RNA sequence: GCUCAAGAGCUGCAGCCAUCGGUACCUGGCCGGCUGCACGGCAACCCCCUCCGCUGAGCGGGGUGCCCCAGGGGAAGAGCCGGCCCGGCGCGAUCGCGUUGGGCAAGUCAGCGGG
Numbered sequence: 001g002c003u004c005a006a007g008a009g010c011u012g013c014a015g016c017c018a019u020c021g022g023u024a025c026c027u028g029g030c031c032g033g034c035u036g037c038a039c040g041g042c043a044a045c046c047c048c049c050u051c052c053g054c055u056g057a058g059c060g061g062g063g064u065g066c067c068c069c070a071g072g073g074g075a076a077g078a079g080c081c082g083g084c085c086c087g088g089c090g091c092g093a094u095c096g097c098g099u100u101g102g103g104c105a106a107g108u109c110a111g112c113g114g115g
Stems, first nucleotide, its partner, number of pairs: 001080004009039001011038006021031002040067003045063003049058002083104009

Source information
Shown here is a 115-nucleotide RNA from Agrococcus pavilionensis, a member of the family "SAM (S-adenosyl methionine) riboswitch aptamer". Its family is annotated with S-adenosylmethionine metabolic process and regulation of gene expression in the Gene Ontology.